[Rfam]
RNA sequence: AUACUCCGGUUUCUCUUCAGAUCGUAUAAAUCUUUCGCCUUUUACUAAAGAUUUCCGUGGAGAGGAACAGUUACGAGUCUUGGAGAAUUUUUAGAGGCUUCACUUCGGUGGAGCU
Numbered sequence: 001a002u003a004c005u006c007c008g009g010u011u012u013c014u015c016u017u018c019a020g021a022u023c024g025u026a027u028a029a030a031u032c033u034u035u036c037g038c039c040u041u042u043u044a045c046u047a048a049a050g051a052u053u054u055c056c057g058u059g060g061a062g063a064g065g066a067a068c069a070g071u072u073a074c075g076a077g078u079c080u081u082g083g084a085g086a087a088u089u090u091u092u093a094g095a096g097g098c099u100u101c102a103c104u105u106c107g108g109u110g111g112a113g114c115u
Stems, first nucleotide, its partner, number of pairs: 003078004009068011028054008095115001097114006